[Rfam]
RNA sequence: UGAGGUAGGCGCUGCGGUGUUCGAGGAGCGCCCCGACUUCCGAGUCCGAGGGCACGCCAAUUUAUUGGCAGGCUUCUUGGGGAAAUUCCCCGGACGUAACGACAGAGAGUGUCACCUCCGCAAGGAGGAUCCCCACGCGAGGCUGCGGAAUGCGACGAUGUCAUUCUGAUGAAGGAGCGUUAUCUGACGGCCUCGCGUGGGCCGUCCAAGCAAAGUUAUGCCAUAACUCAACGGGGAUUACGACUACCUU
Numbered sequence: 001u002g003a004g005g006u007a008g009g010c011g012c013u014g015c016g017g018u019g020u021u022c023g024a025g026g027a028g029c030g031c032c033c034c035g036a037c038u039u040c041c042g043a044g045u046c047c048g049a050g051g052g053c054a055c056g057c058c059a060a061u062u063u064a065u066u067g068g069c070a071g072g073c074u075u076c077u078u079g080g081g082g083a084a085a086u087u088c089c090c091c092g093g094a095c096g097u098a099a100c101g102a103c104a105g106a107g108a109g110u111g112u113c114a115c116c117u118c119c120g121c122a123a124g125g126a127g128g129a130u131c132c133c134c135a136c137g138c139g140a141g142g143c144u145g146c147g148g149a150a151u152g153c154g155a156c157g158a159u160g161u162c163a164u165u166c167u168g169a170u171g172a173a174g175g176a177g178c179g180u181u182a183u184c185u186g187a188c189g190g191c192c193u194c195g196c197g198u199g200g201g202c203c204g205u206c207c208a209a210g211c212a213a214a215g216u217u218a219u220g221c222c223a224u225a226a227c228u229c230a231a232c233g234g235g236g237a238u239u240a241c242g243a244c245u246a247c248c249u250u
Stems, first nucleotide, its partner, number of pairs: 002250007016222003021080009084239003088236004101113004115128005131201003137196006146189002150180004160170004

A member of the RNA family "RNase MRP" from Fistulifera solaris, 250 nucleotides long.
The organism belongs to Fistulifera, within Eukaryota.